RNA sequence: CUGACCUGAGGCGACUGGCGCGUCGGGGUGGACCACCACCAGGGAGCGAACAGCCGGGGGCCGUGCGCCUGGGUCCACGGA
Number, nucleotide and partner (000 for none) at each position: 001c000002u000003g000004a000005c048006c000007u000008g000009a000010g000011g047012c046013g000014a000015c043016u042017g069018g068019c067020g066021c065022g000023u000024c000025g000026g000027g000028g039029u038030g037031g036032a000033c000034c000035a000036c031037c030038a029039c028040c000041a000042g016043g015044g000045a000046g012047c011048g005049a000050a000051c000052a000053g000054c000055c000056g000057g000058g076059g075060g074061c073062c072063g000064u000065g021066c020067g019068c018069c017070u000071g000072g062073g061074u060075c059076c058077a000078c000079g000080g000081a000
Source information:
This 81-nucleotide RNA from Sphaerisporangium rufum belongs to the Rfam family "ZMP/ZTP riboswitch aptamer (pfl RNA motif)". The literature on the family includes a 2015 paper in Nat Struct Mol Biol by Jones and Ferre-D'Amare, "Recognition of the bacterial alarmone ZMP through long-distance association of two RNA subdomains". The organism belongs to Sphaerisporangium, within Bacteria.